Rfam assigns this 76-nucleotide RNA from Cebus imitator to the family "mir-320 microRNA precursor family".
RNA sequence: AGCAACUCAGGUCUUCUCUUCUGGUUUCUUCCCAGGGUCAGGAAAAGCUGGGUUGAGAGGGUGUGAAAAAAAAAAA
Numbered sequence: 001a002g003c004a005a006c007u008c009a010g011g012u013c014u015u016c017u018c019u020u021c022u023g024g025u026u027u028c029u030u031c032c033c034a035g036g037g038u039c040a041g042g043a044a045a046a047g048c049u050g051g052g053u054u055g056a057g058a059g060g061g062u063g064u065g066a067a068a069a070a071a072a073a074a075a076a
Stems, first nucleotide, its partner, number of pairs: 014059005021051004029044004

The match comes from Rfam's covariance-model search (57 bits).
For this family Rfam cites "Many novel mammalian microRNA candidates identified by extensive cloning and RAKE analysis" (Berezikov et al., Genome Res, 2006).